[Rfam]
The record is a 117-nucleotide RNA from Glycine max, which matches "MIR1520 microRNA precursor family" in Rfam. The family's consensus secondary structure was predicted with RNAalifold.
RNA sequence: UUAACAAGUGAUGUUGAUUGCCACGUGUCAUGUUCUGAUUGGAUAUCAACUCCAUGAAAGAAAUAAAUUAUUGUUUUCAUUGAUCAAUCAAAACAUGACACGUGGCAGUCAUCAUUC
Number, nucleotide and partner (000 for none) at each position: 001u000002u000003a000004a000005c000006a000007a000008g000009u000010g000011a000012u000013g000014u000015u000016g000017a000018u000019u000020g106021c105022c104023a103024c000025g101026u100027g000028u000029c097030a096031u095032g000033u093034u092035c000036u090037g000038a088039u087040u086041g000042g000043a000044u000045a000046u000047c000048a000049a000050c000051u000052c000053c000054a000055u000056g000057a000058a000059a000060g000061a000062a000063a000064u000065a000066a000067a000068u000069u000070a000071u000072u000073g000074u000075u000076u000077u000078c000079a000080u000081u000082g000083a000084u000085c000086a040087a039088u038089c000090a036091a000092a034093a033094c000095a031096u030097g029098a000099c000100a026101c025102g000103u023104g022105g021106c020107a000108g000109u000110c000111a000112u000113c000114a000115u000116u000117c000
The family is grouped with related families in Rfam's "MIR1520 microRNA precursor clan". NCBI's taxonomy places the organism under Eukaryota, Viridiplantae, rosids, Glycine, Glycine subgen. Soja.